[Rfam]
RNA sequence: GGUCGUGCCAAUUCGAUCGGGAUACUCAUCAAUAAAAAAUCGAAACCGAGAAUACUAUCUUUUGCCAAUGGCGGGCCAUAUAAAACCCUUGUGGACUAAGCUGUAAAGCCGGUGGAUUACAAAGGCGGAGAAGUCUCAAAUCUUGUACAUCAGGAGUUUCAUCACAUCAUUGGGCGACCUGUUUU
Numbered sequence: 001g002g003u004c005g006u007g008c009c010a011a012u013u014c015g016a017u018c019g020g021g022a023u024a025c026u027c028a029u030c031a032a033u034a035a036a037a038a039a040u041c042g043a044a045a046c047c048g049a050g051a052a053u054a055c056u057a058u059c060u061u062u063u064g065c066c067a068a069u070g071g072c073g074g075g076c077c078a079u080a081u082a083a084a085a086c087c088c089u090u091g092u093g094g095a096c097u098a099a100g101c102u103g104u105a106a107a108g109c110c111g112g113u114g115g116a117u118u119a120c121a122a123a124g125g126c127g128g129a130g131a132a133g134u135c136u137c138a139a140a141u142c143u144u145g146u147a148c149a150u151c152a153g154g155a156g157u158u159u160c161a162u163c164a165c166a167u168c169a170u171u172g173g174g175c176g177a178c179c180u181g182u183u184u185u
Stems, first nucleotide, its partner, number of pairs: 055133002059130001061129006069121002076115004087094002100109003
The family of this 185-nucleotide sequence from Prevotella sp. 885 is "Bacteroidales-1 6S-Bacteroidales RNA suggested". Bacteroidales-1 was first reported in a comparative genomics-based approach of genome and metagenome sequences from Weinberg et al. 2010 In a high-resolution transcriptome map study of Bacteroides thetaiotaomicron, Ryan et al. 2020 report this sRNA as 6S RNA homologue of Bacteroides, in the study they obtain evidence of small product RNAs (pRNAs) related to 6S function. It is annotated as a small RNA. The family's consensus secondary structure is taken from published work. A search with the family's covariance model found it, with a score of 130 bits. The organism belongs to Prevotella, within Bacteria.